[Rfam]
RNA sequence: CAAGCUGGUCAGUGAUGGCCGGUUGAACUGAACAGAAGUCAGCCGAAGUCAUAGUAGUGACACACAGUGCCAUGAAGGAC
Numbered sequence: 001c002a003a004g005c006u007g008g009u010c011a012g013u014g015a016u017g018g019c020c021g022g023u024u025g026a027a028c029u030g031a032a033c034a035g036a037a038g039u040c041a042g043c044c045g046a047a048g049u050c051a052u053a054g055u056a057g058u059g060a061c062a063c064a065c066a067g068u069g070c071c072a073u074g075a076a077g078g079a080c
Base pairs, nucleotide, nucleotide: 001025002024004023005022006021007020008019009018010017011016039046040045048080049079050078057073058072059071061069062068
Notes
The family of this 80-nucleotide sequence from Liquorilactobacillus vini is "Group II catalytic intron D1-D4-1". Pairs were carried over by alignment from the consensus structure. Rfam describes the family as follows. Group II introns are found in rRNA, tRNA and mRNA of organelles in fungi, plants and protists, and also in mRNA in bacteria. Gene Ontology term of the family: Group II intron splicing. The organism belongs to Liquorilactobacillus vini, within Bacteria. A search with the family's covariance model found it, with a score of 63 bits.